[Rfam]
RNA sequence: UGGGGCUGAGGUAGUAGAUUGAAUAGUUGUGGGGAAUCAUUCCUUCUUGUGUGAUAACUAUACAAUCUACUGUCUUUCCUAA
Number, nucleotide and partner (000 for none) at each position: 001u082002g000003g080004g079005g078006c000007u000008g076009a075010g074011g073012u072013a071014g070015u069016a068017g067018a066019u065020u064021g063022a000023a061024u060025a059026g058027u057028u000029g000030u000031g000032g044033g043034g042035a041036a000037u000038c000039a000040u000041u035042c034043c033044u032045u000046c053047u000048u000049g000050u000051g000052u000053g046054a000055u000056a000057a027058c026059u025060a024061u023062a000063c021064a020065a019066u018067c017068u016069a015070c014071u013072g012073u011074c010075u009076u008077u000078c005079c004080u003081a000082a001